[Rfam]
A member of the RNA family "Tryptophan operon leader" from Pseudidiomarina planktonica, 95 nucleotides long. The match comes from Rfam's covariance-model search (47 bits). By type it is a cis-regulatory leader. The organism belongs to Pseudidiomarina, within Bacteria. A reference for the family is Kolter and Yanofsky (1982), "Attenuation in amino acid biosynthetic operons", Annu Rev Genet. At least 6 amino acid operons are known to be regulated by attenuation. In each a leader sequence of 150-200 bp is found upstream of the first gene in the operon. This leader sequence can assume two different secondary structures known as the terminator and the anti-terminator structure.
RNA sequence: AACUGGUGGUGGCACUUCCCGACAUAGCGGGUGGUGUGAGUGUGUGCGUUUAUAAAACACUUAUGAAAACCCGCUCAUUGAGCGGGUUUUUUUAU
Numbered sequence: 001a002a003c004u005g006g007u008g009g010u011g012g013c014a015c016u017u018c019c020c021g022a023c024a025u026a027g028c029g030g031g032u033g034g035u036g037u038g039a040g041u042g043u044g045u046g047c048g049u050u051u052a053u054a055a056a057a058c059a060c061u062u063a064u065g066a067a068a069a070c071c072c073g074c075u076c077a078u079u080g081a082g083c084g085g086g087u088u089u090u091u092u093u094a095u
Base pairs, nucleotide, nucleotide: 006043007042008041012037013036014035015034016033018031019030020029021028068088069087070086071085072084073083074082075080